RNA sequence: UCCAAUUUAAUAUAUAAUAUCUGUAUAACCUCAGAAUAUGGCUUGAGGGUCUCUACCAGGAACCUUAAAAUCCUGAUUACAGAAAAUGAACUUGAUUUC
Numbered sequence: 001u002c003c004a005a006u007u008u009a010a011u012a013u014a015u016a017a018u019a020u021c022u023g024u025a026u027a028a029c030c031u032c033a034g035a036a037u038a039u040g041g042c043u044u045g046a047g048g049g050u051c052u053c054u055a056c057c058a059g060g061a062a063c064c065u066u067a068a069a070a071u072c073c074u075g076a077u078u079a080c081a082g083a084a085a086a087u088g089a090a091c092u093u094g095a096u097u098u099c
Stems, first nucleotide, its partner, number of pairs: 018085001020083006029048005034042001057075005
The family of this 99-nucleotide RNA sequence from Ornithinibacillus halotolerans is "Purine riboswitch aptamer". Taxonomically the source falls in Ornithinibacillus (Bacteria, Bacillota, Caryophanales, Bacillaceae). It scores 71 bits against the family's covariance model.